[Rfam]
RNA sequence: UUGAAAAAUACGGAAGAGAAUUCUAAUGGAAUCGCCGAAGGGACAAGCAAAAAGGUACUGCCUAUCUUUAGUGAAAUUCUCAGGCAAAAGGACCGUAUUUGGACA
Numbered sequence: 001u002u003g004a005a006a007a008a009u010a011c012g013g014a015a016g017a018g019a020a021u022u023c024u025a026a027u028g029g030a031a032u033c034g035c036c037g038a039a040g041g042g043a044c045a046a047g048c049a050a051a052a053a054g055g056u057a058c059u060g061c062c063u064a065u066c067u068u069u070a071g072u073g074a075a076a077u078u079c080u081c082a083g084g085c086a087a088a089a090g091g092a093c094c095g096u097a098u099u100u101g102g103a104c105a
Base pairs, nucleotide, nucleotide: 006100007099008098009097010096011095012094013093020032021031022030023029034085035084036083037081038080041079042078043077047072048071
Dot-bracket structure: .....((((((((......((((.....)))).(((((..(((...((......................))....))))).))).......)))))))).....
Shown here is a 105-nucleotide RNA from Marinisporobacter balticus, a member of the family "Glycine riboswitch aptamer". Taxonomically the source falls in Marinisporobacter (Bacteria, Bacillati, Bacillota, Peptostreptococcales).